This 61-nucleotide sequence from Microbacterium sp. belongs to the Rfam family "msiK RNA". A search with the family's covariance model found it, with a score of 64 bits. The organism belongs to Microbacterium, within Bacteria.
[Rfam]
RNA sequence: CCCGCUCAUUCCAUCACUACGGAUCGUCCGGCACGUACCUGCCGGUGAAGGAGAAGAACAA
Numbered sequence: 001c002c003c004g005c006u007c008a009u010u011c012c013a014u015c016a017c018u019a020c021g022g023a024u025c026g027u028c029c030g031g032c033a034c035g036u037a038c039c040u041g042c043c044g045g046u047g048a049a050g051g052a053g054a055a056g057a058a059c060a061a
Base pairs, nucleotide, nucleotide: 010052011051012050014048015047016046028045029044030043031042032041033040